[Rfam]
RNA sequence: CUUUAUAAGCAGGGGUGCUGGAAUUGGCCGGCUGAGAUUGUAUCCCAUAAGAUACUGACCCUUAUACCUGAUCUGGAUAAUGCCAGCGUAGGAAACGCCAUAAGUCUUGGU
Numbered sequence: 001c002u003u004u005a006u007a008a009g010c011a012g013g014g015g016u017g018c019u020g021g022a023a024u025u026g027g028c029c030g031g032c033u034g035a036g037a038u039u040g041u042a043u044c045c046c047a048u049a050a051g052a053u054a055c056u057g058a059c060c061c062u063u064a065u066a067c068c069u070g071a072u073c074u075g076g077a078u079a080a081u082g083c084c085a086g087c088g089u090a091g092g093a094a095a096c097g098c099c100a101u102a103a104g105u106c107u108u109g110g111u
Base pairs, nucleotide, nucleotide: 009096011062012061013060014059017032018031019030020029021028040055041054042053043052067092068091069090070089073086074085075084076083